Shown here is a 109-nucleotide RNA from Cocos nucifera, a member of the family "MIR168 microRNA precursor family".
RNA sequence: GUCGCCGCCGCCUCUGAUUCGCUUGGUGCAGGUCGGGAACGGCUCCAUUUUUGGCCUACCGGCGAGCUGGAUCCCGCCUUGCAUCAACUGAAUCGGAGCCGGAAUGCGA
Numbered sequence: 001g002u003c004g005c006c007g008c009c010g011c012c013u014c015u016g017a018u019u020c021g022c023u024u025g026g027u028g029c030a031g032g033u034c035g036g037g038a039a040c041g042g043c044u045c046c047a048u049u050u051u052u053g054g055c056c057u058a059c060c061g062g063c064g065a066g067c068u069g070g071a072u073c074c075c076g077c078c079u080u081g082c083a084u085c086a087a088c089u090g091a092a093u094c095g096g097a098g099c100c101g102g103a104a105u106g107c108g109a
Base pairs, nucleotide, nucleotide: 013097014096017093018092019091020090023087024086025085026084027083028082029081030080031079032078034076035075036074037073038072040070